Source information: A member of the RNA family "Small nucleolar RNA Z118/Z121/Z120" from Setaria italica, 104 nucleotides long. The literature on the family includes a 2003 paper in Nucleic Acids Res by Chen et al., "The high diversity of snoRNAs in plants: identification and comparative study of 120 snoRNA genes from Oryza sativa". Its family is annotated with RNA processing and nucleolus in the Gene Ontology. Taxonomically the source falls in Setaria (Eukaryota, Streptophytina, commelinids, Poaceae). A search with the family's covariance model found it, with a score of 70 bits.
RNA sequence: UAUUUGCUGUGAUGAUUCCUGUUAGGACGGUAUCUGAAGGGGUUGAUGUCUAAGUGCACCCCCAUCUGAUUAUACCAAAACUGAAUAUGGUUUCUGAGCAAGUC
Numbered sequence: 001u002a003u004u005u006g007c008u009g010u011g012a013u014g015a016u017u018c019c020u021g022u023u024a025g026g027a028c029g030g031u032a033u034c035u036g037a038a039g040g041g042g043u044u045g046a047u048g049u050c051u052a053a054g055u056g057c058a059c060c061c062c063c064a065u066c067u068g069a070u071u072a073u074a075c076c077a078a079a080a081c082u083g084a085a086u087a088u089g090g091u092u093u094c095u096g097a098g099c100a101a102g103u104c
Base pairs, nucleotide, nucleotide: 002103003102004101005100006099007098038065040063041061042060